[Rfam]
RNA sequence: CAGCGAUACUCUGGAAAGUGCCGCAUGCCGCAAGGCUGCGGCCGCCGACGGUGUAACCCGGUUCGUCCCAUCGAGGAUGACCCGGGGAAGCUCUCAGGCUUCCGUGACAGAGGGGGCACC
Numbered sequence: 001c002a003g004c005g006a007u008a009c010u011c012u013g014g015a016a017a018g019u020g021c022c023g024c025a026u027g028c029c030g031c032a033a034g035g036c037u038g039c040g041g042c043c044g045c046c047g048a049c050g051g052u053g054u055a056a057c058c059c060g061g062u063u064c065g066u067c068c069c070a071u072c073g074a075g076g077a078u079g080a081c082c083c084g085g086g087g088a089a090g091c092u093c094u095c096a097g098g099c100u101u102c103c104g105u106g107a108c109a110g111a112g113g114g115g116g117c118a119c120c
Stems, first nucleotide, its partner, number of pairs: 007114001009112005020042006044099003047095002051093001053091001057086005
Glycine riboswitch aptamer: a 120-nucleotide sequence from Novosphingobium silvae. Lineage of the source: Bacteria > Pseudomonadota > Sphingomonadales > Sphingomonadaceae > Novosphingobium.